[Rfam]
This 100-nucleotide RNA sequence from Salvator merianae belongs to the Rfam family "Small nucleolar RNA SNORD125". On this family, see Yang et al., Nucleic Acids Res 2006: "snoSeeker: an advanced computational package for screening of guide and orphan snoRNA genes in the human genome". It scores 61 bits against the family's covariance model. The family is grouped with related families in Rfam's "SNORD61 clan". Rfam links the family to the GO terms nucleolus and RNA processing. Lineage of the source: Eukaryota > Eumetazoa > Unidentata > Laterata > Salvator.
RNA sequence: CUCCUAAGUAGCCUCGCAUGAUGACUCUUUCGCUUCUGAACGCCUGGUUUGAUGAACUUCUGAAACCCUCUAAGAAGUUGACUGAAGAGGCUUUUUCACU
Numbered sequence: 001c002u003c004c005u006a007a008g009u010a011g012c013c014u015c016g017c018a019u020g021a022u023g024a025c026u027c028u029u030u031c032g033c034u035u036c037u038g039a040a041c042g043c044c045u046g047g048u049u050u051g052a053u054g055a056a057c058u059u060c061u062g063a064a065a066c067c068c069u070c071u072a073a074g075a076a077g078u079u080g081a082c083u084g085a086a087g088a089g090g091c092u093u094u095u096u097c098a099c100u
Base pairs, nucleotide, nucleotide: 007095008094010092011091012090013089014088015087